[Rfam]
RNA sequence: GUUCACGAGUUGCAGCUGUCGGUACCUGGCCGGCUGCACGGCAACCCCCUCCGUCGAGCGGGGUGCCCCAGGGGAAGAACCGGCCCGGGCGAGCGUUCCGGGCAAGUCGACGGA
Numbered sequence: 001g002u003u004c005a006c007g008a009g010u011u012g013c014a015g016c017u018g019u020c021g022g023u024a025c026c027u028g029g030c031c032g033g034c035u036g037c038a039c040g041g042c043a044a045c046c047c048c049c050u051c052c053g054u055c056g057a058g059c060g061g062g063g064u065g066c067c068c069c070a071g072g073g074g075a076a077g078a079a080c081c082g083g084c085c086c087g088g089g090c091g092a093g094c095g096u097u098c099c100g101g102g103c104a105a106g107u108c109g110a111c112g113g114a
Base pairs, nucleotide, nucleotide: 001080002079003078004077009039011038012037013036014035015034016033021031022030040067041066042065045063046062047061049058050057083103084102085101086100087099088098089097090095

Overview
The family of this 114-nucleotide sequence from Agromyces seonyuensis is "SAM (S-adenosyl methionine) riboswitch aptamer". A reference for the family is Weinberg et al. (2008), "The aptamer core of SAM-IV riboswitches mimics the ligand-binding site of SAM-I riboswitches", RNA. Pairs were carried over by alignment from the consensus structure, which is taken from published work. Clan: SAM clan.